[Rfam]
RNA: Bacterial RNase P class A
Organism: Chloracidobacterium thermophilum
Nucleotides: 437
Base pairs, nucleotide, nucleotide: 001433002432003431004430005429006428007427008426009425010424011422012389013388014387015386016385017384018383020054021053023051024050025049026048027047028046029045030044031043032042033041059420060419061418063417064416065415066414067413068272069271070270071269077321080268081267082266083265084264085099086098087097088096089095100138101136102135103134104133105132106131107130108129109128139263140262144261145260146257147256161202162201163198164197165196168195169194170193171192173190174189175188176187177186178185179184210228211227212226213225214224215223230252231250232249233248234247235246236245237244238243276346277345278344279343286337287336288335289334290333291332315328316327317326318325319324353372354371355370356369357368358367359366360365
Number, partner (000 for none) and nucleotide at each position: 001433g002432g003431a004430g005429c006428g007427g008426a009425u010424g011422g012389g013388a014387c015386g016385g017384u018383c019000g020054c021053u022000g023051c024050c025049u026048g027047c028046u029045g030044g031043u032042c033041g034000u035000g036000a037000c038000a039000a040000c041033c042032g043031g044030c045029c046028g047027g048026c049025a050024g051023g052000g053021a054020g055000a056000g057000g058000a059420a060419a061418g062000u063417c064416c065415g066414a067413a068272c069271a070270c071269c072000g073000u074000a075000g076000a077321g078000c079000a080268g081267c082266g083265a084264g085099c086098c087097g088096g089095c090000u091000a092000a093000c094000g095089g096088c097087c098086g099085g100138g101136c102135g103134c104133g105132u106131c107130c108129g109128a110000a111000g112000c113000g114000u115000c116000g117000g118000c119000u120000a121000c122000g123000a124000c125000c126000u127000g128109u129108c130107g131106g132105g133104c134103g135102c136101g137000a138100c139263g140262a141000c142000a143000a144261g145260u146257g147256c148000a149000a150000c151000a152000g153000a154000g155000a156000a157000c158000a159000g160000a161202c162201a163198g164197c165196c166000u167000g168195a169194c170193u171192u172000a173190c174189a175188c176187g177186c178185c179184c180000u181000u182000c183000g184179g185178g186177g187176u188175g189174u190173g191000c192171g193170a194169g195168u196165g197164g198163c199000g200000a201162u202161g203000g204000u205000g206000a207000a208000a209000c210228g211227g212226u213225g214224c215223g216000g217000u218000a219000a220000a221000g222000g223215c224214g225213c226212a227211c228210c229000a230252g231250c232249g233248a234247g235246c236245g237244u238243g239000g240000u241000a242000a243238c244237a245236c246235g247234u248233u249232c250231g251000g252230c253000u254000a255000g256147g257146c258000a259000a260145a261144c262140u263139c264084c265083u266082c267081g268080c269071g270070g271069u272068g273000c274000a275000a276346g277345a278344c279343c280000a281000a282000a283000u284000a285000u286337g287336g288335a289334g290333g291332u292000g293000u294000c295000u296000g297000a298000g299000g300000g301000c302000u303000g304000c305000u306000c307000g308000u309000c310000c311000a312000a313000g314000u315328c316327c317326u318325g319324c320000u321077c322000c323000g324319g325318c326317a327316g328315g329000c330000a331000c332291a333290u334289c335288u336287c337286c338000g339000g340000g341000u342000a343279g344278g345277u346276c347000g348000c349000u350000u351000g352000a353372g354371c355370u356369g357368c358367c359366g360365g361000g362000u363000a364000a365360c366359c367358g368357g369356c370355a371354g372353c373000c374000u375000a376000g377000a378000u379000g380000a381000a382000u383018g384017a385016c386015c387014g388013u389012c390000g391000c392000c393000g394000u395000c396000c397000c398000c399000g400000u401000g402000a403000c404000g405000g406000a407000a408000c409000a410000g411000a412000a413067u414066u415065c416064g417063g418061c419060u420059u421000a422011c423000a424010c425009a426008u427007c428006c429005g430004u431003u432002c433001c434000c435000a436000a437000u